[Rfam]
A member of the RNA family "Small nucleolar RNA SNORA81" from Dipodomys ordii, 173 nucleotides long. Its family is annotated with nucleolus and RNA processing in the Gene Ontology. The family has 28 seed sequences and 1,161 matches in Rfam 15.1. It is annotated as an H/ACA-box small nucleolar RNA.
RNA sequence: AAGUUAAAAAAUUCACUGUGCUAAAAUCGCAGAAACUAGGGUCCUGUCUGGUUUCUGUAAUAAUGUUAGCAGAGUACACACAAGAAGGAAAGUAUCUGCACUGGAUCCAAGAUGGGGUAGGUCUCUUUUUUAAUGUCCAGUGUCUUUUGUCUUUAAGAUUUGGUGCAAUAUGC
Numbered sequence: 001a002a003g004u005u006a007a008a009a010a011a012u013u014c015a016c017u018g019u020g021c022u023a024a025a026a027u028c029g030c031a032g033a034a035a036c037u038a039g040g041g042u043c044c045u046g047u048c049u050g051g052u053u054u055c056u057g058u059a060a061u062a063a064u065g066u067u068a069g070c071a072g073a074g075u076a077c078a079c080a081c082a083a084g085a086a087g088g089a090a091a092g093u094a095u096c097u098g099c100a101c102u103g104g105a106u107c108c109a110a111g112a113u114g115g116g117g118u119a120g121g122u123c124u125c126u127u128u129u130u131u132a133a134u135g136u137c138c139a140g141u142g143u144c145u146u147u148u149g150u151c152u153u154u155a156a157g158a159u160u161u162g163g164u165g166c167a168a169u170a171u172g173c
Stems, first nucleotide, its partner, number of pairs: 016074002019071005026064002029061001032055002035052004040048003097167009114143001116141001118139001120137002